[Rfam]
Shown here is a 91-nucleotide RNA from Rhizobium sp. Root149, a member of the family "Repression of heat shock gene expression (ROSE) element". By type it is an RNA thermoregulator. A search with the family's covariance model found it, with a score of 49 bits. About the family: This family represents a 5' UTR cis-regulatory element found in heat shock mRNAs and is known as the ROSE (repression of heat shock gene expression) element. The ROSE element is a negative regulator of heat shock gene expression. The secondary structure is thought to be regulated by temperature. This regulation blocks access to the ribosome binding site under normal conditions. Its family is annotated with response to temperature stimulus and regulation of translation in the Gene Ontology. The organism belongs to Rhizobium, within Bacteria.

RNA sequence: UCAGCCGCCGACUGGGGCUGACACUACCGGAGACGCGAGUUUCCGCCCGUCUCUAUUCCAUCUCGCUUCACGGAGGAUUUGGUUAUGAGAA
Number, nucleotide and partner (000 for none) at each position: 001u021002c020003a019004g018005c017006c016007g000008c015009c014010g000011a000012c000013u000014g009015g008016g006017g005018c004019u003020g002021a001022c000023a000024c000025u000026a000027c000028c049029g048030g047031a000032g000033a000034c000035g046036c045037g044038a000039g000040u000041u000042u000043c000044c037045g036046c035047c030048c029049g028050u089051c000052u087053c000054u085055a084056u000057u000058c082059c081060a080061u000062c000063u077064c076065g000066c075067u074068u073069c000070a000071c000072g000073g068074a067075g066076g064077a063078u000079u000080u060081g059082g058083u000084u055085a054086u000087g052088a000089g050090a000091a000